A member of the RNA family "FMN riboswitch aptamer (RFN element)" from Roseovarius halotolerans, 166 nucleotides long. A search with the family's covariance model found it, with a score of 107 bits.

RNA sequence: UGCUGUUCUCAGGGCGGGGUGAAAUUCCCCACCGGCGGUAAGAGGCGCGCCAACCGGCGCAUCCCGAGCCCGCGAGCGCCCCGGUAUCAUGGAUCAUGUCCGGGGGUCAGCAGAUCUGGUGUGACUCCAGAGCCGACGGUUACAGUCCGGAUGGAAGAGAACGUCA
Numbered sequence: 001u002g003c004u005g006u007u008c009u010c011a012g013g014g015c016g017g018g019g020u021g022a023a024a025u026u027c028c029c030c031a032c033c034g035g036c037g038g039u040a041a042g043a044g045g046c047g048c049g050c051c052a053a054c055c056g057g058c059g060c061a062u063c064c065c066g067a068g069c070c071c072g073c074g075a076g077c078g079c080c081c082c083g084g085u086a087u088c089a090u091g092g093a094u095c096a097u098g099u100c101c102g103g104g105g106g107u108c109a110g111c112a113g114a115u116c117u118g119g120u121g122u123g124a125c126u127c128c129a130g131a132g133c134c135g136a137c138g139g140u141u142a143c144a145g146u147c148c149g150g151a152u153g154g155a156a157g158a159g160a161a162c163g164u165c166a
Base pairs, nucleotide, nucleotide: 004163005162006161007160008159009158010157017029018028019027031146032145033135034134035073036072037071038070068133069132076111077110115131116130117129118128119127137149138148139147